[Rfam]
RNA sequence: AAACCGUCCCAUAACUUUUGCAACUGUAGCAGUUUUAGCCCCCCAAAGGCAAAAAAAAAAUUAACACGUGGCACCUCACUUAGGGUGCCACGUCAGCGUAUACCGAGUUAAAAUUGGCAUCGGGGGCCAAAACUGCCACAGGUGCAAAACAUAGGGGGUGGUAU
Numbered sequence: 001a002a003a004c005c006g007u008c009c010c011a012u013a014a015c016u017u018u019u020g021c022a023a024c025u026g027u028a029g030c031a032g033u034u035u036u037a038g039c040c041c042c043c044c045a046a047a048g049g050c051a052a053a054a055a056a057a058a059a060a061u062u063a064a065c066a067c068g069u070g071g072c073a074c075c076u077c078a079c080u081u082a083g084g085g086u087g088c089c090a091c092g093u094c095a096g097c098g099u100a101u102a103c104c105g106a107g108u109u110a111a112a113a114u115u116g117g118c119a120u121c122g123g124g125g126g127c128c129a130a131a132a133c134u135g136c137c138a139c140a141g142g143u144g145c146a147a148a149a150c151a152u153a154g155g156g157g158g159u160g161g162u163a164u
Stems, first nucleotide, its partner, number of pairs: 001164001004161005012153002016149007024141004029136008038127006045120001066093002069090007
A member of the RNA family "MIR2619 microRNA precursor family" from Medicago truncatula, 164 nucleotides long. Pairs were carried over by alignment from the consensus structure, which was predicted with RNAalifold. The organism belongs to Medicago, within Eukaryota.